[Rfam]
This 123-nucleotide sequence from Brochothrix campestris belongs to the Rfam family "FMN riboswitch aptamer (RFN element)". The RFN element is a highly conserved domain that is found frequently in the 5'-untranslated regions of prokaryotic mRNAs that encode for flavin mononucleotide (FMN) biosynthesis and transport proteins. This element is a metabolite-dependent riboswitch that directly binds FMN in the absence of proteins. In Bacillus subtilis, the riboswitch most likely controls gene expression by causing premature transcription termination within the 5' untranslated region of the ribDEAHT operon and precluding access to the ribosome-binding site of ypaA mRNA.The FMN riboswitch structure, reported in present an FMN-bound six-stem junction, adopts a butterfly-like scaffold, stapled together by opposingly directed but nearly identically folded peripheral domains. It scores 114 bits against the family's covariance model.
RNA sequence: GUUCAUCUUCAGGGCAGGGUGUGAUUCCCGACCGGUGGUAAAAGUCCACGACCUUCUUGCAAAAGAGGCUGAUGCGGUGUAAGUCCGCGACCGACUGUAUAGUCAGGAUGGGAGAAGAUGUGA
Numbered sequence: 001g002u003u004c005a006u007c008u009u010c011a012g013g014g015c016a017g018g019g020u021g022u023g024a025u026u027c028c029c030g031a032c033c034g035g036u037g038g039u040a041a042a043a044g045u046c047c048a049c050g051a052c053c054u055u056c057u058u059g060c061a062a063a064a065g066a067g068g069c070u071g072a073u074g075c076g077g078u079g080u081a082a083g084u085c086c087g088c089g090a091c092c093g094a095c096u097g098u099a100u101a102g103u104c105a106g107g108a109u110g111g112g113a114g115a116a117g118a119u120g121u122g123a
Base pairs, nucleotide, nucleotide: 004120005119006118007117008116009115010114017029018028019027031103032102033093034092035049036048037047038046044091045090053068054067073089074088075087076086077085095106096105097104